[Rfam]
RNA sequence: AACUUCCUUGUCUAGGGGAGCGGAGUGUGUCAAUGAACGUCCAGUGAGACCACUUUUGCUGAUAUCCUUGUCACUGUAAGGAUUUCUCAUCCUGUGAUGAGGGAAUUGGCAAUUUGAAAAG
Number, nucleotide and partner (000 for none) at each position: 001a000002a000003c000004u000005u019006c018007c017008u016009u015010g000011u000012c000013u000014a000015g009016g008017g007018g006019a005020g059021c058022g057023g056024a054025g053026u052027g051028u000029g050030u049031c048032a000033a000034u000035g000036a000037a045038c044039g000040u000041c000042c000043a000044g038045u037046g000047a000048g031049a030050c029051c027052a026053c025054u024055u000056u023057u022058g021059c020060u000061g000062a000063u000064a000065u000066c000067c000068u000069u000070g000071u000072c000073a000074c000075u000076g000077u000078a000079a000080g000081g110082a106083u105084u000085u000086c101087u100088c099089a098090u097091c096092c000093u000094g000095u000096g091097a090098u089099g088100a087101g086102g000103g000104a000105a083106u082107u000108g000109g000110c081111a000112a000113u000114u000115u000116g000117a000118a000119a000120a000121g000
Rfam assigns this 121-nucleotide sequence from Callosobruchus maculatus to the family "U4atac minor spliceosomal RNA". U4atac is an essential component of the minor U12-type spliceosome complex which is required for removal of the rarer class of eukaryotic introns (AT-AC, U12-type). Gene Ontology terms of the family: mRNA 5'-splice site recognition, U4atac snRNP and pre-mRNA 5'-splice site binding. NCBI's taxonomy places the organism under Eukaryota, Arthropoda, Mandibulata, Bruchinae, Callosobruchus.